[Rfam]
RNA: manA RNA
RNA sequence: UCCGGCGACGGCUGGAGGCAGGGAGUGCAGAGAACAAUGGUUUUUCAGUGACCAUAAUCUGGCUUGUCACGGGUUGUGCCGACUAGACUUGCGGUGACGUUAAGUUUAGACAUCGCCGACAUGGCGGGGCAAGGUUUGACGGGAUUGGAACUGACCCGUCAAUGUAGGUAUUCCAAAGUCCUACCUCCCACCUU
Numbered sequence: 001u002c003c004g005g006c007g008a009c010g011g012c013u014g015g016a017g018g019c020a021g022g023g024a025g026u027g028c029a030g031a032g033a034a035c036a037a038u039g040g041u042u043u044u045u046c047a048g049u050g051a052c053c054a055u056a057a058u059c060u061g062g063c064u065u066g067u068c069a070c071g072g073g074u075u076g077u078g079c080c081g082a083c084u085a086g087a088c089u090u091g092c093g094g095u096g097a098c099g100u101u102a103a104g105u106u107u108a109g110a111c112a113u114c115g116c117c118g119a120c121a122u123g124g125c126g127g128g129g130c131a132a133g134g135u136u137u138g139a140c141g142g143g144a145u146u147g148g149a150a151c152u153g154a155c156c157c158g159u160c161a162a163u164g165u166a167g168g169u170a171u172u173c174c175a176a177a178g179u180c181c182u183a184c185c186u187c188c189c190a191c192c193u194u
Stems, first nucleotide, its partner, number of pairs: 001016006021189005029060002038054005063133006070081003075121003083109009113127005136162007164184005